[Rfam]
This 68-nucleotide RNA from Anaerosporobacter mobilis belongs to the Rfam family "int-alpA RNA". By type it is a small RNA. The match comes from Rfam's covariance-model search (39 bits). The base pairs follow the family's consensus structure, which is taken from published work. Acidobacteria (1 example), Planctomycetes (1 example), Proteobacteria.

RNA sequence: GGGCAGUAUAGUUAGACGUAACGAAAAGUGGAAAUCCUGUCCAUUUACUGCUCCGUUACUGUUUUAGG
Numbered sequence: 001g002g003g004c005a006g007u008a009u010a011g012u013u014a015g016a017c018g019u020a021a022c023g024a025a026a027a028g029u030g031g032a033a034a035u036c037c038u039g040u041c042c043a044u045u046u047a048c049u050g051c052u053c054c055g056u057u058a059c060u061g062u063u064u065u066a067g068g
Stems, first nucleotide, its partner, number of pairs: 001053008011022004028044004036068004